mir-34 microRNA precursor family: a 70-nucleotide RNA from Zonotrichia albicollis. The family's consensus secondary structure was predicted with RNAalifold. The match comes from Rfam's covariance-model search (68 bits). About the family: Human mir-34a was discovered computationally and later experimentally verified. The mature sequence is excised from the 5' arm of the hairpin.
RNA sequence: GGUUUGCAGGCAGUGUAGUUAGCUGAUUGUCUCCACCACCCACAAUCACUAACUUCACUGCCACCAAAAC
Numbered sequence: 001g002g003u004u005u006g007c008a009g010g011c012a013g014u015g016u017a018g019u020u021a022g023c024u025g026a027u028u029g030u031c032u033c034c035a036c037c038a039c040c041c042a043c044a045a046u047c048a049c050u051a052a053c054u055u056c057a058c059u060g061c062c063a064c065c066a067a068a069a070c
Base pairs, nucleotide, nucleotide: 003068004067005066006065009062010061012059013058014057015056017054018053019052020051021050022049024048025047026046027045028044029043030042
Dot-bracket structure: ..((((..((.((((.((((((.(((((((...........))))))))))))).)))).))..))))..